[Rfam]
RNA sequence: GGCCGUUCCCAGGGGGGCCUCGCUAGGAGGCUGAGAUUCCGCCGGUUCGGACCUGUUUCGAGCGACGCGGUGACCCUCCGAACCUGAUCCGGCUCAUACCGGCGUAGGGAUGCGGGACAUUGGGUGG
Numbered sequence: 001g002g003c004c005g006u007u008c009c010c011a012g013g014g015g016g017g018c019c020u021c022g023c024u025a026g027g028a029g030g031c032u033g034a035g036a037u038u039c040c041g042c043c044g045g046u047u048c049g050g051a052c053c054u055g056u057u058u059c060g061a062g063c064g065a066c067g068c069g070g071u072g073a074c075c076c077u078c079c080g081a082a083c084c085u086g087a088u089c090c091g092g093c094u095c096a097u098a099c100c101g102g103c104g105u106a107g108g109g110a111u112g113c114g115g116g117a118c119a120u121u122g123g124g125u126g127g
Base pairs, nucleotide, nucleotide: 006117007116008115009114011077012076013075014074016071017031018030019029020028021027039070040069041068042067083108084107085106086105089102090101091100092099